[Rfam]
RNA sequence: AACAUGCUCCUUAGAUCCAUCUUUGUGGAUAUCUCUUGGGCUGAGUUCUGUUUGGUAACUCUCGGUUUCUGGCAGUUCCAGUCAAGUGAUAUUCAGCAACUUUUUUGGUUGUACAGUCAAAGGUGCUUGAGUCAUUGGCAUGUGAGAGCAAUAUACCUGCAUGUUAGUCUCCAGUGUUCUGAUAGAAGUGACUGUAGUUCUACAUGUUGUUUCUCACUAUCAGGACUUGGCUGGUAUGCAGACACG
Numbered sequence: 001a002a003c004a005u006g007c008u009c010c011u012u013a014g015a016u017c018c019a020u021c022u023u024u025g026u027g028g029a030u031a032u033c034u035c036u037u038g039g040g041c042u043g044a045g046u047u048c049u050g051u052u053u054g055g056u057a058a059c060u061c062u063c064g065g066u067u068u069c070u071g072g073c074a075g076u077u078c079c080a081g082u083c084a085a086g087u088g089a090u091a092u093u094c095a096g097c098a099a100c101u102u103u104u105u106u107g108g109u110u111g112u113a114c115a116g117u118c119a120a121a122g123g124u125g126c127u128u129g130a131g132u133c134a135u136u137g138g139c140a141u142g143u144g145a146g147a148g149c150a151a152u153a154u155a156c157c158u159g160c161a162u163g164u165u166a167g168u169c170u171c172c173a174g175u176g177u178u179c180u181g182a183u184a185g186a187a188g189u190g191a192c193u194g195u196a197g198u199u200c201u202a203c204a205u206g207u208u209g210u211u212u213c214u215c216a217c218u219a220u221c222a223g224g225a226c227u228u229g230g231c232u233g234g235u236a237u238g239c240a241g242a243c244a245c246g
Base pairs, nucleotide, nucleotide: 002143003142004141005140006139007138008137010131011130012129013128014127018125019124020123021122022121023120024119025118026095027094028093029092030091031090035086036085037084040082041081042080043079045078048075049074050073051072054069057067058066059065096112097111098110099109100108101107157241158240159239160238161237164234166232167231168230169229178224179223180222181221182220183219184218185217189216190215191214194207195206196205
Description:
A member of the RNA family "Small nucleolar RNA SNORA53" from Alligator mississippiensis, 246 nucleotides long. The snoRNA ACA53 belongs to the H/ACA family of pseudouridylation guide snoRNAs. By type it is an H/ACA-box small nucleolar RNA.